[Rfam]
RNA sequence: UCGCCAGCGGAAGGCUCUGACACGCGGUCCAUACCCGGCCGCCGGGACCGCGCCGAGCCACUGGCGAGACCGACCCGCGUGGCU
Numbered sequence: 001u002c003g004c005c006a007g008c009g010g011a012a013g014g015c016u017c018u019g020a021c022a023c024g025c026g027g028u029c030c031a032u033a034c035c036c037g038g039c040c041g042c043c044g045g046g047a048c049c050g051c052g053c054c055g056a057g058c059c060a061c062u063g064g065c066g067a068g069a070c071c072g073a074c075c076c077g078c079g080u081g082g083c084u
Stems, first nucleotide, its partner, number of pairs: 003083004007078004013059003023052007037071002040066004

The record is an 84-nucleotide sequence, which matches "c-di-GMP-II-GAG riboswitch aptamer" in Rfam. Gene Ontology terms of the family: cyclic-di-GMP binding and regulation of gene expression. For this family Rfam cites "Bioinformatic analysis of riboswitch structures uncovers variant classes with altered ligand specificity" (Weinberg et al., Proc Natl Acad Sci U S A, 2017).